[Rfam]
RNA sequence: AACUCAAUGAAACUCUGAGCUGCAUUACCUAAGUCACACAAUUGAUAUGGUUUUGCCGCCGUGGCUUUAAGUCACCAGGGUGUAAGGUAGAAAUGCCUGCGCCUCCCGAAUUUGGAAAGGUGUUUUAUGGUAUCGCAA
Numbered sequence: 001a002a003c004u005c006a007a008u009g010a011a012a013c014u015c016u017g018a019g020c021u022g023c024a025u026u027a028c029c030u031a032a033g034u035c036a037c038a039c040a041a042u043u044g045a046u047a048u049g050g051u052u053u054u055g056c057c058g059c060c061g062u063g064g065c066u067u068u069a070a071g072u073c074a075c076c077a078g079g080g081u082g083u084a085a086g087g088u089a090g091a092a093a094u095g096c097c098u099g100c101g102c103c104u105c106c107c108g109a110a111u112u113u114g115g116a117a118a119g120g121u122g123u124u125u126u127a128u129g130g131u132a133u134c135g136c137a138a
Base pairs, nucleotide, nucleotide: 011124012123013122015120016119019059020058022056023055024054027051028050029049033046034045035044036043061075062074063073064072065071078104079103080102081101082100083099085098086097087096088095089094105115106114
RNA: Molybdenum/Tungsten riboswitch aptamer (Moco RNA motif)